[Rfam]
The family of this 349-nucleotide RNA sequence from Hydrotalea sandarakina is "Bacterial RNase P class A".
A search with the family's covariance model found it, with a score of 253 bits.
By type it is a ribozyme.
RNA sequence: CUACAAACCCGCUUUAUCGCCUUGUUUGAAUAAACAGGGAGGAAAGUCCGGACAGCACAGAGCAACCCACCGGUGAAAAGCCGGCCACCAUUUGGUGAGAGAAAGUGCCACAGAAAAUAACUGUCAUGCUGAAUGUAUGAUGAGGGUGAAAACGUGAGGUAAGAGCUCACGGCUGUUAUUGGUAACAAUAGCUGCGGGUAAACCUUGGGUGCUGCAAUGCCACGUAUAGAGCCGUUUUAAGAGCUGCUCGUUCAAGGCUCAGGGUAGGCAGCAACAGGUAAACAGUAAUGUUUAUCGCAGAUAAAUGAUAAAGUAGAAACAGAAUCCGGCUUAUGAGGUUUGUAGCUUU
Numbered sequence: 001c002u003a004c005a006a007a008c009c010c011g012c013u014u015u016a017u018c019g020c021c022u023u024g025u026u027u028g029a030a031u032a033a034a035c036a037g038g039g040a041g042g043a044a045a046g047u048c049c050g051g052a053c054a055g056c057a058c059a060g061a062g063c064a065a066c067c068c069a070c071c072g073g074u075g076a077a078a079a080g081c082c083g084g085c086c087a088c089c090a091u092u093u094g095g096u097g098a099g100a101g102a103a104a105g106u107g108c109c110a111c112a113g114a115a116a117a118u119a120a121c122u123g124u125c126a127u128g129c130u131g132a133a134u135g136u137a138u139g140a141u142g143a144g145g146g147u148g149a150a151a152a153c154g155u156g157a158g159g160u161a162a163g164a165g166c167u168c169a170c171g172g173c174u175g176u177u178a179u180u181g182g183u184a185a186c187a188a189u190a191g192c193u194g195c196g197g198g199u200a201a202a203c204c205u206u207g208g209g210u211g212c213u214g215c216a217a218u219g220c221c222a223c224g225u226a227u228a229g230a231g232c233c234g235u236u237u238u239a240a241g242a243g244c245u246g247c248u249c250g251u252u253c254a255a256g257g258c259u260c261a262g263g264g265u266a267g268g269c270a271g272c273a274a275c276a277g278g279u280a281a282a283c284a285g286u287a288a289u290g291u292u293u294a295u296c297g298c299a300g301a302u303a304a305a306u307g308a309u310a311a312a313g314u315a316g317a318a319a320c321a322g323a324a325u326c327c328g329g330c331u332u333a334u335g336a337g338g339u340u341u342g343u344a345g346c347u348u349u
Base pairs, nucleotide, nucleotide: 001345002344003343004342005341006340007339008338009337011334012313013312014311015310016309017308018307020039021038022037023036024035025034026033027032044332045331046330048329049328050327051326052325053214054213055212056211060249061248062247063246065210066209067208068207069206070084071083072082073081074080085099086097087096088095089094100205101204105203106202107199108198109197121145122144123141124140125139126138127137128136129135153171154170155169156168157167158166175192176191177190178189179188180187181186218270219269220268221267229260230259231258232257233256241253242252243251244250277296278295279294280293281292282291283290284289
Dot-bracket structure: (((((((((.((((((((.((((((((....))))))))....[[[.[[[[[((((...[[[[.((((((((((.....)))))(((((....)))).)((...(((((...........(((((((((.....)))))))..)).......((((((.......))))))...(((((((....)))))))....)))..)))))))))))))...((((.......(((((.......((((.]]]]))))..)))))......))))......((((((((....))))))))..........)))))))...........]]]]]]]].)..)))))))))....